[Rfam]
RNA: msiK RNA
Organism: Nocardioides marmotae
RNA sequence: GUCGGGCGUCACCCCACUACGGAUCGUCCGGCACGUACCUGCCGGUGGAGGAGAUCGAA
Numbered sequence: 001g002u003c004g005g006g007c008g009u010c011a012c013c014c015c016a017c018u019a020c021g022g023a024u025c026g027u028c029c030g031g032c033a034c035g036u037a038c039c040u041g042c043c044g045g046u047g048g049a050g051g052a053g054a055u056c057g058a059a
Stems, first nucleotide, its partner, number of pairs: 010051001012050001014048003028045006